[Rfam]
Rfam assigns this 135-nucleotide RNA sequence from Pararge aegeria to the family "Small nucleolar RNA psi18S-841/snoR66". It scores 51 bits against the family's covariance model. psi18S-841 is a member of the H/ACA class of snoRNA. This family is responsible for guiding the modification of uridine 841 in Drosophila 18S rRNA to pseudouridine. Rfam 15.1 lists 108 matches to the family in 46 species. NCBI's taxonomy places the organism under Eukaryota, Ecdysozoa, Mandibulata, Pararge, Pararge aegeria.

RNA sequence: UGCAAGGGCACUCUGUGUUAUACAUUUUCCAUAUGUUACUCACAAUUUGUUACCUUGCUAUAGCAUAUCUACUAUAUCCUAUUCUGAAUGGACUUCAUGUCAUUUUGGUCAUAAUAGUAGAAACAUAAUUAUUGU
Numbered sequence: 001u002g003c004a005a006g007g008g009c010a011c012u013c014u015g016u017g018u019u020a021u022a023c024a025u026u027u028u029c030c031a032u033a034u035g036u037u038a039c040u041c042a043c044a045a046u047u048u049g050u051u052a053c054c055u056u057g058c059u060a061u062a063g064c065a066u067a068u069c070u071a072c073u074a075u076a077u078c079c080u081a082u083u084c085u086g087a088a089u090g091g092a093c094u095u096c097a098u099g100u101c102a103u104u105u106u107g108g109u110c111a112u113a114a115u116a117g118u119a120g121a122a123a124c125a126u127a128a129u130u131a132u133u134g135u
Stems, first nucleotide, its partner, number of pairs: 002058006010050002014044003017040001019038002022036002064134002070127002073125001075123001079117002082114002085111003089107001091105002
Dot-bracket structure: .((((((..((..((((.((.((...........)))).).)))....))..)))))).....((....((.(.(...((.((.(((.(.((...........)).).))).)).)).....).))).....)).